[Rfam]
Nucleotides: 101
Base pairs, nucleotide, nucleotide: 002100003099004098006096007095008094009093010092011091013089016086017085018084019083020082021081024078025077026076
Number, partner (000 for none) and nucleotide at each position: 001000u002100u003099u004098g005000a006096g007095g008094g009093g010092a011091a012000c013089g014000u015000u016086g017085u018084c019083u020082g021081g022000c023000c024078c025077g026076a027000g028000g029000a030000c031000a032000c033000u034000g035000g036000u037000u038000u039000c040000u041000c042000a043000a044000u045000c046000c047000u048000u049000g050000g051000g052000g053000u054000u055000g056000a057000g058000u059000u060000u061000g062000u063000u064000u065000u066000g067000c068000u069000c070000g071000u072000g073000u074000u075000g076026u077025c078024g079000g080000a081021c082020c083019a084018g085017g086016c087000u088000u089013c090000a091011u092010u093009c094008c095007c096006c097000c098004c099003a100002a101000u

mir-166 microRNA precursor family: a 101-nucleotide RNA sequence from Hibiscus syriacus.
The family's consensus secondary structure was predicted with PFOLD.
About the family: This family represents the plant microRNA (miRNA) precursor mir-166.
A reference for the family is Reinhart et al. (2002), "MicroRNAs in plants", Genes Dev.